L2-Alphaproteobacteria ribosomal protein leader: a 63-nucleotide sequence.
[Rfam]
RNA sequence: GGCUCCCAGGAGCCCAAACAUAGCGGGUCGUCAAAGACCCGCACUGCUAACGGAAGACAGAAA
Dot-bracket structure: (((((....)))))........(((((((......))))))).....................
Overview
Rfam's curators put it in the seed alignment. It is annotated as a cis-regulatory leader.